Rfam assigns this 322-nucleotide RNA sequence from Aliarcobacter butzleri to the family "Bacterial RNase P class A". The organism belongs to Aliarcobacter butzleri, within Bacteria. It is annotated as a ribozyme.
[Rfam]
RNA sequence: UAGGUAAACCAGACAAUAGCUUGAAAUUUCAAGAGGAAAGUCCGGGCUGCAGUGAAGUGUGGUUCCAUUUAAAUAAUGGCUAGAGUAAUCUAAGGGAUAGUGCAACAGAGAGUAGACAGCCAAUUUUUUUGGUGAUGGUGAAACGGUAAGGUAAGAGCUUACCAGCAAAUUGAGUAAUCUUUUUGGCUUUGUAAACCCAACUUGCAGCAAGAAGACUAGGUAAUUACUUCACAUUUUUGGUCUUCGCAGGAGUACUAAAGUAAUUUAGUACCUAGAUAAAUUAUUGUCUUUGACAGAACGCGGCUUACGGUUUACCUAACUU
Numbered sequence: 001u002a003g004g005u006a007a008a009c010c011a012g013a014c015a016a017u018a019g020c021u022u023g024a025a026a027u028u029u030c031a032a033g034a035g036g037a038a039a040g041u042c043c044g045g046g047c048u049g050c051a052g053u054g055a056a057g058u059g060u061g062g063u064u065c066c067a068u069u070u071a072a073a074u075a076a077u078g079g080c081u082a083g084a085g086u087a088a089u090c091u092a093a094g095g096g097a098u099a100g101u102g103c104a105a106c107a108g109a110g111a112g113u114a115g116a117c118a119g120c121c122a123a124u125u126u127u128u129u130u131g132g133u134g135a136u137g138g139u140g141a142a143a144c145g146g147u148a149a150g151g152u153a154a155g156a157g158c159u160u161a162c163c164a165g166c167a168a169a170u171u172g173a174g175u176a177a178u179c180u181u182u183u184u185g186g187c188u189u190u191g192u193a194a195a196c197c198c199a200a201c202u203u204g205c206a207g208c209a210a211g212a213a214g215a216c217u218a219g220g221u222a223a224u225u226a227c228u229u230c231a232c233a234u235u236u237u238u239g240g241u242c243u244u245c246g247c248a249g250g251a252g253u254a255c256u257a258a259a260g261u262a263a264u265u266u267a268g269u270a271c272c273u274a275g276a277u278a279a280a281u282u283a284u285u286g287u288c289u290u291u292g293a294c295a296g297a298a299c300g301c302g303g304c305u306u307a308c309g310g311u312u313u314a315c316c317u318a319a320c321u322u
Base pairs, nucleotide, nucleotide: 001318002317003316004315005314006313007312008311009310010309012288013287014286015285016284017283018282020033021032022031023030024029038306039305040304042303043302044301046299047207048206049205050204057230061202062201063200064199065079066078067077068076069075080094081092082091083090084089095198096197100196101195102192103191104190117137118136119133120132121131122130123129145163146162147161148160149159150158165187166185167184168183169182172179173178211245212244213243220237222235223234224233252271253270254269255268256267257266258265259264